[Rfam]
RNA sequence: GUGCGCUACCGGGGUCGGUGGAAGUCCGAACCGGCGGUGACGGGGUCAGGCCCCGAAGCCCGCGACCCGCUGGCAGCCAGUCAGCGGUUGACCUGGUGAGAGUCCAGGGCCGACGGUGAAAGUCCGGAUGGUAGGCAGCGCAC
Numbered sequence: 001g002u003g004c005g006c007u008a009c010c011g012g013g014g015u016c017g018g019u020g021g022a023a024g025u026c027c028g029a030a031c032c033g034g035c036g037g038u039g040a041c042g043g044g045g046u047c048a049g050g051c052c053c054c055g056a057a058g059c060c061c062g063c064g065a066c067c068c069g070c071u072g073g074c075a076g077c078c079a080g081u082c083a084g085c086g087g088u089u090g091a092c093c094u095g096g097u098g099a100g101a102g103u104c105c106a107g108g109g110c111c112g113a114c115g116g117u118g119a120a121a122g123u124c125c126g127g128a129u130g131g132u133a134g135g136c137a138g139c140g141c142a143c
Base pairs, nucleotide, nucleotide: 003141004140005139006138007137009135010134016028017027018026030123031122032112033111034063035062036061037060058110059109067087068086092108093107094106095105096104114126115125116124